RNA sequence: GCGCGCCACCCCUCUACUCGGAUCGUCCGGCACGUUCCUGCCGGUGAAGGGAUUGAUUC
Numbered sequence: 001g002c003g004c005g006c007c008a009c010c011c012c013u014c015u016a017c018u019c020g021g022a023u024c025g026u027c028c029g030g031c032a033c034g035u036u037c038c039u040g041c042c043g044g045u046g047a048a049g050g051g052a053u054u055g056a057u058u059c
Base pairs, nucleotide, nucleotide: 010051011050012049013048015046016045027044028043029042030041031040032039
RNA: msiK RNA